c-di-GMP-I riboswitch aptamer: a 164-nucleotide RNA sequence from Olavius algarvensis associated proteobacterium Delta 3.
Pairs were carried over by alignment from the consensus structure, which is taken from published work.
About the family: GEMM was predicted in a large-scale screen for bacterial structured RNA regulatory elements. Genes associated with GEMM are involved in a diverse array of functions, including chemotaxis regulation, signal transduction, secretion and chitin.
RNA sequence: GUCCAGAAAAGCCAAACCCAUUGUGAGGUGGGGACGGAAAGCCACGGAUCUCAGUGUUGAGCAACAGGAAAAGGCUAUUACAGCCCAUGCGAUUCAUUUAGUCCAGCAGUCACAACUUUUCCUGUUUCUCAAUUAACGAAGUACGAGACCGCCGGGUUGCCACG
Numbered sequence: 001g002u003c004c005a006g007a008a009a010a011g012c013c014a015a016a017c018c019c020a021u022u023g024u025g026a027g028g029u030g031g032g033g034a035c036g037g038a039a040a041g042c043c044a045c046g047g048a049u050c051u052c053a054g055u056g057u058u059g060a061g062c063a064a065c066a067g068g069a070a071a072a073g074g075c076u077a078u079u080a081c082a083g084c085c086c087a088u089g090c091g092a093u094u095c096a097u098u099u100a101g102u103c104c105a106g107c108a109g110u111c112a113c114a115a116c117u118u119u120u121c122c123u124g125u126u127u128c129u130c131a132a133u134u135a136a137c138g139a140a141g142u143a144c145g146a147g148a149c150c151g152c153c154g155g156g157u158u159g160c161c162a163c164g
Stems, first nucleotide, its partner, number of pairs: 012037002017032006040158004045154003049148002055143004
A search with the family's covariance model found it, with a score of 51 bits.